Description: Shown here is a 79-nucleotide RNA from Oryza punctata, a member of the family "Small nucleolar RNA U54". Rfam classes the family as a C/D-box small nucleolar RNA. Taxonomically the source falls in Oryza (Eukaryota, Embryophyta, Mesangiospermae, Poales).
RNA sequence: AGCUCAGUGAUUGCAGCCACUUUCAUUGGCAAUAUAAGCUAUGCUGACUAUUGUUUGAUGACAAAUAAUAAUGAGAGCU
Numbered sequence: 001a002g003c004u005c006a007g008u009g010a011u012u013g014c015a016g017c018c019a020c021u022u023u024c025a026u027u028g029g030c031a032a033u034a035u036a037a038g039c040u041a042u043g044c045u046g047a048c049u050a051u052u053g054u055u056u057g058a059u060g061a062c063a064a065a066u067a068a069u070a071a072u073g074a075g076a077g078c079u
Base pairs, nucleotide, nucleotide: 001079002078003077004076005075

From the family's description: U54 is a C/D box small nucleolar RNA, which acts as a methylation guide for 18S ribosomal RNA in plants. Clan: U54 clan. Rfam 15.1 lists 614 matches to the family in 206 species.